[Rfam]
RNA sequence: CUGGGAACUGGAGAUGGCAUGCCUCCAGCCUUCGGCCAUUCACCCAGCGAAUCACGAAGCGAACCGCCCUCACCGGGCCGAUGAUGCCUACGCACUG
Numbered sequence: 001c002u003g004g005g006a007a008c009u010g011g012a013g014a015u016g017g018c019a020u021g022c023c024u025c026c027a028g029c030c031u032u033c034g035g036c037c038a039u040u041c042a043c044c045c046a047g048c049g050a051a052u053c054a055c056g057a058a059g060c061g062a063a064c065c066g067c068c069c070u071c072a073c074c075g076g077g078c079c080g081a082u083g084a085u086g087c088c089u090a091c092g093c094a095c096u097g
Base pairs, nucleotide, nucleotide: 010026011025012024013023016088017087018086019085020084066078067077068076069075
RNA: Fluoride riboswitch aptamer (crcB RNA motif)